[Rfam]
A member of the RNA family "Proteobacterial sRNA psRNA2" from Burkholderia glumae, 243 nucleotides long. The organism belongs to Burkholderia glumae, within Bacteria. The family has 7 seed sequences and 122 matches in Rfam 15.1. A reference for the family is Gvakharia et al. (2010), "Computational prediction and transcriptional analysis of sRNAs in Nitrosomonas europaea", FEMS Microbiol Lett.

RNA sequence: GGGUUACUCCUUGGCGCUUGCGCGCUGUUUUGAUGAAGAUUCGCACCUCUAUCAAAACGGGUAACCCCGCCUCUUGGCAAGGCCUUACUGUCAGAUCAAGUCUGAACUUCUACAGCUCAUGGCCGCAGCAUAGUCUCUACUUCUGACCCGCGUCGCCCUAGUCAAAUCUCCGAAUCCAGCGCAGCGUCUCUUCUUUCUUAUCAAGAUUGUCCGGCACACGGAACAGUCUGCUGGAAUAUGCUU
Number, nucleotide and partner (000 for none) at each position: 001g067002g066003g065004u064005u063006a062007c061008u000009c060010c059011u000012u000013g000014g025015c024016g023017c022018u000019u000020g000021c000022g017023c016024g015025c014026u000027g058028u057029u056030u055031u054032g053033a052034u051035g050036a000037a048038g047039a000040u000041u000042c000043g000044c000045a000046c000047c038048u037049c000050u035051a034052u033053c032054a031055a030056a029057a028058c027059g010060g009061g007062u006063a005064a004065c003066c002067c001068c000069g241070c240071c000072u000073c000074u000075u000076g191077g190078c000079a000080a000081g185082g000083c000084c184085u000086u183087a000088c000089u000090g107091u106092c104093a103094g102095a101096u100097c000098a000099a000100g096101u095102c094103u093104g092105a000106a091107c090108u000109u000110c179111u178112a000113c000114a175115g000116c000117u000118c000119a000120u000121g000122g000123c000124c000125g000126c000127a000128g000129c000130a000131u000132a000133g000134u000135c000136u000137c000138u000139a000140c000141u000142u000143c000144u000145g000146a000147c000148c000149c000150g000151c000152g000153u000154c000155g000156c000157c000158c000159u000160a000161g000162u000163c000164a000165a000166a000167u000168c000169u000170c000171c000172g000173a000174a000175u114176c000177c000178a111179g110180c000181g000182c000183a086184g084185c081186g000187u000188c000189u000190c077191u076192u000193c000194u000195u000196u000197c000198u000199u000200a000201u000202c000203a000204a000205g000206a000207u000208u000209g000210u235211c234212c233213g232214g231215c230216a229217c000218a227219c226220g000221g000222a000223a000224c000225a000226g219227u218228c000229u216230g215231c214232u213233g212234g211235a210236a000237u000238a000239u000240g070241c069242u000243u000